Annotation: bantam microRNA precursor family: an 83-nucleotide RNA sequence from Strigamia maritima. The base pairs follow the family's consensus structure, which was predicted with RNAalifold. A search with the family's covariance model found it, with a score of 82 bits. The literature on the family includes a 2007 paper in Genome Biol by Weaver et al., "Computational and transcriptional evidence for microRNAs in the honey bee genome". The family is grouped with related families in Rfam's "mir-81 clan". Gene Ontology terms of the family: miRNA-mediated post-transcriptional gene silencing and RISC complex.
Nucleotides: 083
Stems, first nucleotide, its partner, number of pairs: 009080006016073010028061006
Number, partner (000 for none) and nucleotide at each position: 001000g002000a003000u004000u005000u006000a007000a008000g009080a010079c011078a012077a013076a014075a015000c016073u017072g018071g019070u020069u021068u022067u023066c024065a025064c026000g027000a028061u029060g030059a031058u032057u033056u034000g035000a036000c037000a038000g039000a040000a041000a042000g043000u044000u045000u046000u047000g048000a049000a050000a051000u052000u053000c054000u055000g056033a057032g058031a059030u060029c061028a062000u063000u064025g065024u066023g067022a068021a069020a070019g071018c072017u073016g074000a075014u076013u077012u078011u079010g080009u081000u082000a083000a